[Rfam]
RNA sequence: GCCAUGGUAGUGUAGUGGUAUCACGACACGUUGUGGUUACGGCUCCGUGUCGACCCUGGUUCGAUUCCAGGCCAUGGCA
Number, nucleotide and partner (000 for none) at each position: 001g078002c077003c076004a075005u074006g073007g072008u000009a000010g024011u023012g022013u000014a000015g000016u000017g000018g000019u000020a000021u000022c012023a011024c010025g000026a050027c049028a048029c047030g046031u000032u000033g000034u000035g000036g000037u000038u000039a000040c000041g000042g000043c000044u000045c000046c030047g029048u028049g027050u026051c000052g000053a000054c000055c071056c070057u069058g068059g067060u000061u000062c000063g000064a000065u000066u000067c059068c058069a057070g056071g055072c007073c006074a005075u004076g003077g002078c001079a000